The family of this 102-nucleotide sequence from Virgibacillus sp. MSP4-1 is "Purine riboswitch aptamer".
About the family: Riboswitches are metabolite binding domains within certain messenger RNAs that serve as precision sensors for their corresponding targets.
Pairs were carried over by alignment from the consensus structure, which is taken from published work.
[Rfam]
RNA sequence: UUAAUGAAAGAUUCAGACCUUCAUAUAUCCUCGAUAAUACGGAUCGAGAGUCUCUACCGGGAUACCUUAAAUAUCCUGACUAUGAAGGCAGGAUGGACGUAU
Numbered sequence: 001u002u003a004a005u006g007a008a009a010g011a012u013u014c015a016g017a018c019c020u021u022c023a024u025a026u027a028u029c030c031u032c033g034a035u036a037a038u039a040c041g042g043a044u045c046g047a048g049a050g051u052c053u054c055u056a057c058c059g060g061g062a063u064a065c066c067u068u069a070a071a072u073a074u075c076c077u078g079a080c081u082a083u084g085a086a087g088g089c090a091g092g093a094u095g096g097a098c099g100u101a102u
Stems, first nucleotide, its partner, number of pairs: 018088008030048006058078007